[Rfam]
Nucleotides: 159
Stems, first nucleotide, its partner, number of pairs: 002019006028069005033060005039054006084107001086105007109130004116123002135151005
Number, partner (000 for none) and nucleotide at each position: 001000c002019c003018c004017u005016g006015u007014u008000u009000u010000c011000u012000g013000c014007a015006a016005c017004a018003g019002g020000u021000a022000u023000u024000c025000u026000a027000c028069c029068g030067g031066g032065a033060c034059a035058u036057g037056c038000g039054u040053c041052c042051g043050g044049a045000g046000u047000a048000a049044u050043c051042c052041g053040g054039g055000g056037g057036u058035g059034u060033g061000a062000a063000g064000c065032u066031c067030u068029c069028g070000g071000g072000a073000c074000a075000a076000g077000a078000g079000a080000a081000g082000c083000c084107c085000g086105c087104g088103g089102a090101g091100g092099a093000u094000g095000u096000a097000u098000u099092u100091c101090c102089u103088c104087c105086g106000g107084g108000a109130g110129a111128g112127g113000g114000a115000a116123c117122c118000g119000u120000g121000a122117g123116g124000g125000g126000a127112c128111c129110u130109c131000a132000a133000c134000u135151c136150u137149g138148c139147a140000a141000g142000c143000a144000u145000c146000a147139u148138g149137c150136g151135g152000u153000a154000a155000g156000g157000g158000a159000g

The family of this 159-nucleotide RNA from Candidatus Magnetomorum sp. HK-1 is "Group II catalytic intron D1-D4-7". Group II introns are found in rRNA, tRNA and mRNA of organelles in fungi, plants and protists, and also in mRNA in bacteria.